The family of this 83-nucleotide sequence from Arachis hypogaea is "Small nucleolar RNA U54". For this family Rfam cites "The high diversity of snoRNAs in plants: identification and comparative study of 120 snoRNA genes from Oryza sativa" (Chen et al., Nucleic Acids Res, 2003). The family's consensus secondary structure was predicted with PFOLD. By type it is a C/D-box small nucleolar RNA. The family is grouped with related families in Rfam's "U54 clan". Lineage of the source: Eukaryota > Tracheophyta > Pentapetalae > Dalbergieae > Arachis. The family has 21 seed sequences and 614 matches in Rfam 15.1.

RNA sequence: UGCUCUGUGAUUUCUUGCAUACAUUACAGUAUACGCUAUUUCGAUUUAACGUAUGAGUAGAAAUUUUAUUGCGUAUGAGAGCU
Numbered sequence: 001u002g003c004u005c006u007g008u009g010a011u012u013u014c015u016u017g018c019a020u021a022c023a024u025u026a027c028a029g030u031a032u033a034c035g036c037u038a039u040u041u042c043g044a045u046u047u048a049a050c051g052u053a054u055g056a057g058u059a060g061a062a063a064u065u066u067u068a069u070u071g072c073g074u075a076u077g078a079g080a081g082c083u
Stems, first nucleotide, its partner, number of pairs: 002082004